[Rfam]
RNA sequence: GGGGAUAAACGACGGCGUGCAAUAGACGCAGCGGACCCGGGGGCAGUACCCGGCGGCUCCACCAUAAAUGGUGGUGUAUCUGGACACCGUUUCUGACGGGGCCGAACCAGGAUCGACGUGUGUUGAAAAGCGCCGACUAUCUCUCAGCGUGGGCCACUGCGACGGUCCGUUACACAAGUGCCAACGAUAACGAAGCACUCGCUAUUGCGGCGUAA
Number, nucleotide and partner (000 for none) at each position: 001g144002g143003g142004g141005a140006u000007a000008a000009a000010c000011g000012a000013c000014g134015g133016c132017g131018u000019g000020c000021a000022a000023u000024a000025g000026a000027c122028g121029c120030a000031g119032c118033g117034g000035a000036c000037c053038c052039g051040g050041g049042g000043g000044c000045a000046g000047u000048a000049c041050c040051c039052g038053g037054c104055g103056g102057c101058u100059c099060c098061a000062c000063c000064a000065u000066a000067a000068a000069u000070g000071g000072u000073g000074g000075u000076g000077u000078a000079u000080c000081u000082g000083g000084a000085c000086a000087c000088c000089g000090u000091u000092u000093c000094u000095g000096a000097c000098g060099g059100g058101g057102c056103c055104g054105a000106a000107c000108c000109a000110g000111g000112a000113u000114c000115g000116a000117c033118g032119u031120g029121u028122g027123u000124u000125g000126a000127a000128a000129a000130g000131c017132g016133c015134c014135g000136a000137c000138u000139a000140u005141c004142u003143c002144u001145c159146a158147g157148c000149g000150u000151g000152g000153g000154c000155c000156a000157c147158u146159g145160c000161g000162a000163c000164g000165g000166u000167c000168c000169g000170u000171u000172a000173c000174a000175c000176a000177a000178g000179u000180g000181c000182c000183a000184a000185c000186g000187a000188u000189a000190a000191c000192g000193a000194a000195g000196c000197a000198c000199u000200c000201g000202c000203u000204a000205u000206u000207g000208c000209g000210g000211c000212g000213u000214a000215a000

This 215-nucleotide RNA sequence from Sphingomonas sp. G-3-2-10 belongs to the Rfam family "permuted transfer-messenger RNA". Taxonomically the source falls in Sphingomonas (Bacteria, Pseudomonadati, Pseudomonadota, Alphaproteobacteria). It is annotated as a non-coding RNA gene.